[Rfam]
RNA sequence: AGCUUUGCGCAGUGGCAGUAUCGUAGCCAAUGAGGUUUAUCCGAGGCGCGAUUAUUGCUAAUAGAAUGAAAUGCUCCAACAGAUUAACUAAAAUAUAUCUUUUGAGCUCUUUGUAAAAGCAAAGUGCU
Number, nucleotide and partner (000 for none) at each position: 001a000002g000003c000004u000005u000006u000007g000008c000009g000010c000011a000012g000013u000014g000015g000016c000017a000018g000019u000020a052021u051022c050023g049024u048025a000026g047027c046028c045029a000030a000031u000032g000033a000034g042035g041036u000037u000038u000039a000040u000041c035042c034043g000044a000045g028046g027047c026048g024049c023050g022051a021052u020053u000054a000055u000056u000057g000058c000059u000060a000061a000062u000063a000064g000065a000066a000067u000068g000069a000070a000071a000072u000073g000074c000075u105076c104077c000078a000079a102080c000081a100082g099083a098084u097085u000086a000087a094088c000089u000090a000091a000092a000093a000094u087095a000096u000097a084098u083099c082100u081101u000102u079103u000104g076105a075106g000107c000108u000109c000110u000111u000112u000113g000114u000115a000116a000117a000118a128119g127120c126121a125122a000123a000124g000125u121126g120127c119128u118

Background
This 128-nucleotide RNA sequence from Neogale vison belongs to the Rfam family "U4 spliceosomal RNA". Lineage of the source: Eukaryota > Eumetazoa > Chordata > Amniota > Neogale. It is annotated as a spliceosomal small nuclear RNA. Pairs were carried over by alignment from the consensus structure, which is taken from published work. For this family Rfam cites "The uRNA database" (Zwieb, Nucleic Acids Res, 1997). U4 small nuclear RNA (U4 snRNA) is a component of the major U2-dependent spliceosome.